RNA sequence: UGGUUCUAUGUUAGGAGGGCGAAUCCGCCGAAUUUAAGCAUAUAAUUAAGCGGAAGAAAAGAAAAUAACAAUGAUUCCUUUAGUAACGGCGAGUGAACAAGGACCAGCUCAAAAGGAAAAUCCCUCGGUUUGUGCAAGCUUACCUUGGGAAUUGUCAUGUUGAGUAAUUUUCCAAUUAAUGCCUUAGCAUUCAAGCGAAGUGAGCAGGAAAGCUCUCCCUAAGAGGGUGAAAGGCCCGUAGUUUGUUGCUUUCUAUUUUUUGGAAUUUUACUUCUAGAGUCGUGUUCUUUGAGAUUGGAGCACUAAUUCGUGUGAUACAUUUCACAUAAAGCUAAAUAUGUGUAGGAGACCGAUAGCAAACAAGUACCGUGAGGGAAAGAUGAAAUAGUACUCAGGAAUGAGCCAUUAAAUAGUACCUGAAAUCGUUAAGAUGGAAC
Dot-bracket structure: .......................(((((......((....)).......)))).).........((....))...(((((.....((.....))....)))))..((((...(.((.((.((((..(((............)))..)))).)).)).).....((((.(.((((..........(((.(....((....(.((((......)))))..(...)..((.......))......))......).))).....))))).)).))..........(((((((........)))))))......(((((........)))))..)))).................................((....))................((((....))))...................................
Numbered sequence: 001u002g003g004u005u006c007u008a009u010g011u012u013a014g015g016a017g018g019g020c021g022a023a024u025c026c027g028c029c030g031a032a033u034u035u036a037a038g039c040a041u042a043u044a045a046u047u048a049a050g051c052g053g054a055a056g057a058a059a060a061g062a063a064a065a066u067a068a069c070a071a072u073g074a075u076u077c078c079u080u081u082a083g084u085a086a087c088g089g090c091g092a093g094u095g096a097a098c099a100a101g102g103a104c105c106a107g108c109u110c111a112a113a114a115g116g117a118a119a120a121u122c123c124c125u126c127g128g129u130u131u132g133u134g135c136a137a138g139c140u141u142a143c144c145u146u147g148g149g150a151a152u153u154g155u156c157a158u159g160u161u162g163a164g165u166a167a168u169u170u171u172c173c174a175a176u177u178a179a180u181g182c183c184u185u186a187g188c189a190u191u192c193a194a195g196c197g198a199a200g201u202g203a204g205c206a207g208g209a210a211a212g213c214u215c216u217c218c219c220u221a222a223g224a225g226g227g228u229g230a231a232a233g234g235c236c237c238g239u240a241g242u243u244u245g246u247u248g249c250u251u252u253c254u255a256u257u258u259u260u261u262g263g264a265a266u267u268u269u270a271c272u273u274c275u276a277g278a279g280u281c282g283u284g285u286u287c288u289u290u291g292a293g294a295u296u297g298g299a300g301c302a303c304u305a306a307u308u309c310g311u312g313u314g315a316u317a318c319a320u321u322u323c324a325c326a327u328a329a330a331g332c333u334a335a336a337u338a339u340g341u342g343u344a345g346g347a348g349a350c351c352g353a354u355a356g357c358a359a360a361c362a363a364g365u366a367c368c369g370u371g372a373g374g375g376a377a378a379g380a381u382g383a384a385a386u387a388g389u390a391c392u393c394a395g396g397a398a399u400g401a402g403c404c405a406u407u408a409a410a411u412a413g414u415a416c417c418u419g420a421a422a423u424c425g426u427u428a429a430g431a432u433g434g435a436a437c
Stems, first nucleotide, its partner, number of pairs: 024055001025053004035042002065072002076103005086094002106333004113158001115156002118153002121150004127144003164271002166268002169265001171264004185255003189251001194244002200216001202215004219223001226236002282303007310327005367374002391402004
A member of the RNA family "Eukaryotic large subunit ribosomal RNA" from Plasmodium vivax, 437 nucleotides of a longer RNA.